[Rfam]
A member of the RNA family "Acido-Lenti-1 RNA" from Bryocella elongata, 45 nucleotides long.
The family's consensus secondary structure is taken from published work.
The source organism's lineage runs through Bacteria, Pseudomonadati, Acidobacteriota, Terriglobia and Bryocella.
Rfam 15.1 lists 2,607 matches to the family in 171 species.
RNA sequence: CCUAGGCCUGCGGCCCAGGCUAGUAUGUAUCGGGCCUUUGGCCCU
Numbered sequence: 001c002c003u004a005g006g007c008c009u010g011c012g013g014c015c016c017a018g019g020c021u022a023g024u025a026u027g028u029a030u031c032g033g034g035c036c037u038u039u040g041g042c043c044c045u
Base pairs, nucleotide, nucleotide: 001019002018003017005015006014007013008012032044033043034042035041036040